[Rfam]
RNA: skipping-rope RNA
RNA sequence: GAUUGUUGAGGUCGGAAAGGUUCCCGACACACUCCGCAUAUGUGGAGUACCUGAGAUGCAGGAUACACCGCCCUGCCAUCAAUC
Numbered sequence: 001g002a003u004u005g006u007u008g009a010g011g012u013c014g015g016a017a018a019g020g021u022u023c024c025c026g027a028c029a030c031a032c033u034c035c036g037c038a039u040a041u042g043u044g045g046a047g048u049a050c051c052u053g054a055g056a057u058g059c060a061g062g063a064u065a066c067a068c069c070g071c072c073c074u075g076c077c078a079u080c081a082a083u084c
Stems, first nucleotide, its partner, number of pairs: 001084005007078002011028005019069003030053001031048007058076005